[Rfam]
RNA sequence: UUAUUCAUUUACGAGUUAUUAAGCUUUCCAAUUUAUAACUUAAGACAUCCAGAUCAUCUGGAUACCGAGUGGCUCCUGUCCACUCUGUUUGACGCCUCCCUGUUAAUGACUUCGAGCCGCGGCCUCCGCGGCUCUUUUUUU
Numbered sequence: 001u002u003a004u005u006c007a008u009u010u011a012c013g014a015g016u017u018a019u020u021a022a023g024c025u026u027u028c029c030a031a032u033u034u035a036u037a038a039c040u041u042a043a044g045a046c047a048u049c050c051a052g053a054u055c056a057u058c059u060g061g062a063u064a065c066c067g068a069g070u071g072g073c074u075c076c077u078g079u080c081c082a083c084u085c086u087g088u089u090u091g092a093c094g095c096c097u098c099c100c101u102g103u104u105a106a107u108g109a110c111u112u113c114g115a116g117c118c119g120c121g122g123c124c125u126c127c128g129c130g131g132c133u134c135u136u137u138u139u140u141u
Base pairs, nucleotide, nucleotide: 001043002042003041005014006013020035021034022033023032025030047063048062049061050060067085068084069083070082071081072080091104092103093102094101114134115133116132117131118130119129120128121127122126
A member of the RNA family "Alphaproteobacterial sRNA BjrC1505" from Stappia sediminis, 141 nucleotides long.
By type it is a small RNA.
The source organism's lineage runs through Bacteria, Alphaproteobacteria, Hyphomicrobiales, Stappiaceae and Stappia.